Rfam assigns this 77-nucleotide sequence from Dictyostelium purpureum to the family "Class I RNA from Dictyostelium".
It is annotated as a non-coding RNA gene.
Rfam describes the family as follows. Dictyostelium Class I RNA was first reported for Aspegren et al. 2004 in Dictyostelium discoideum. Sucgang et al. 2011 identify putative homologs of Class I RNA in D. discoideum and D. purpureum. Avesson et al. 2011 report that Class I RNA present a down regulation during the development of social amoeba Dictyostelium discoideum, they also found that deletion of one of the Class I RNAs, DdR-21, results in aberrant development.
Rfam's curators put it in the seed alignment.
For this family Rfam cites "Novel non-coding RNAs in Dictyostelium discoideum and their expression during development" (Aspegren et al., Nucleic Acids Res, 2004).
RNA sequence: GAAUUCCUUACAGCAAUCAUUAAUGAAUGUUCAUCUUGAGAGACCCACGUGGUUUUUCCCGGUAAAAUUGGAUUCUG
Numbered sequence: 001g002a003a004u005u006c007c008u009u010a011c012a013g014c015a016a017u018c019a020u021u022a023a024u025g026a027a028u029g030u031u032c033a034u035c036u037u038g039a040g041a042g043a044c045c046c047a048c049g050u051g052g053u054u055u056u057u058c059c060c061g062g063u064a065a066a067a068u069u070g071g072a073u074u075c076u077g
Stems, first nucleotide, its partner, number of pairs: 001075006